The record is a 100-nucleotide RNA sequence from Paenibacillus graminis, which matches "Purine riboswitch aptamer" in Rfam. The source organism's lineage runs through Bacteria, Bacillati, Bacillota, Bacilli and Paenibacillus. A search with the family's covariance model found it, with a score of 69 bits.
[Rfam]
RNA sequence: AACAAACAAUGAUUAGCUGUUCGUAUAUCCUCAAAGAUAAGGUUUGGGGGUCUCUACAGGGAACCGUAAAUUCCUGGCUACGAAUAGGGUGCAUUUGGCA
Numbered sequence: 001a002a003c004a005a006a007c008a009a010u011g012a013u014u015a016g017c018u019g020u021u022c023g024u025a026u027a028u029c030c031u032c033a034a035a036g037a038u039a040a041g042g043u044u045u046g047g048g049g050g051u052c053u054c055u056a057c058a059g060g061g062a063a064c065c066g067u068a069a070a071u072u073c074c075u076g077g078c079u080a081c082g083a084a085u086a087g088g089g090u091g092c093a094u095u096u097g098g099c100a
Stems, first nucleotide, its partner, number of pairs: 018086008029049007059075005